[Rfam]
Rfam assigns this 77-nucleotide sequence from Alligator mississippiensis to the family "Mammalian CPEB3 ribozyme". The base pairs follow the family's consensus structure, which is taken from published work. A search with the family's covariance model found it, with a score of 41 bits. NCBI's taxonomy places the organism under Eukaryota, Sauropsida, Crocodylia, Alligatorinae, Alligator.

RNA sequence: GGUUGCAAGCUCAAGGCCAUAGCAGAAGCAUUUAUGAUGCAACUUGUCAGAUUCCAAAGAAAUCUGUGAAUUCUGUU
Numbered sequence: 001g002g003u004u005g006c007a008a009g010c011u012c013a014a015g016g017c018c019a020u021a022g023c024a025g026a027a028g029c030a031u032u033u034a035u036g037a038u039g040c041a042a043c044u045u046g047u048c049a050g051a052u053u054c055c056a057a058a059g060a061a062a063u064c065u066g067u068g069a070a071u072u073c074u075g076u077u
Stems, first nucleotide, its partner, number of pairs: 013044001016043001021077007028040003048066006